[Rfam]
A member of the RNA family "Small nucleolar RNA SNORA9" from Polypterus senegalus, 135 nucleotides long. The family's RNA type in Rfam is H/ACA-box small nucleolar RNA. Its family is annotated with RNA processing and nucleolus in the Gene Ontology. Pairs were carried over by alignment from the consensus structure, which was predicted with PFOLD. It scores 95 bits against the family's covariance model. Rfam describes the family as follows. ACA9 is a member of the H/ACA class of snoRNA that guide the sites of modification of uridines to pseudouridines.

RNA sequence: CUGCAAGCUGCUCAGCGAGGCUUAGCCGUUUGGUGGCUUUGUCCUUUCCUCAGGAGUUUGCUAAAGUGACACUGAAGUGGUUUGAGGCCUUGCUGUGACUUUUCCAAGGCGAGGUCAUAGAAACUUCACACAGCC
Numbered sequence: 001c002u003g004c005a006a007g008c009u010g011c012u013c014a015g016c017g018a019g020g021c022u023u024a025g026c027c028g029u030u031u032g033g034u035g036g037c038u039u040u041g042u043c044c045u046u047u048c049c050u051c052a053g054g055a056g057u058u059u060g061c062u063a064a065a066g067u068g069a070c071a072c073u074g075a076a077g078u079g080g081u082u083u084g085a086g087g088c089c090u091u092g093c094u095g096u097g098a099c100u101u102u103u104c105c106a107a108g109g110c111g112a113g114g115u116c117a118u119a120g121a122a123a124c125u126u127c128a129c130a131c132a133g134c135c
Base pairs, nucleotide, nucleotide: 003061004060005059006058007057008056018045019044020043024038025037026036027035073128074127075126076125077124088114089113090112091111092110093109096106097105